[Rfam]
RNA sequence: ACUCGGGCACGAUCCUUACGCACGCUGUGGCGUUGCGACGUGUAGUGAUGCACCCACGCACGGUGUGGAGAGAGGGAACCGACCCGUAGUUCAACCCUGAGGGA
Numbered sequence: 001a002c003u004c005g006g007g008c009a010c011g012a013u014c015c016u017u018a019c020g021c022a023c024g025c026u027g028u029g030g031c032g033u034u035g036c037g038a039c040g041u042g043u044a045g046u047g048a049u050g051c052a053c054c055c056a057c058g059c060a061c062g063g064u065g066u067g068g069a070g071a072g073a074g075g076g077a078a079c080c081g082a083c084c085c086g087u088a089g090u091u092c093a094a095c096c097c098u099g100a101g102g103g104a
Stems, first nucleotide, its partner, number of pairs: 001090003004086004013077005021067009
RNA: L31-Corynebacteriaceae ribosomal protein leader
Organism: Corynebacterium singulare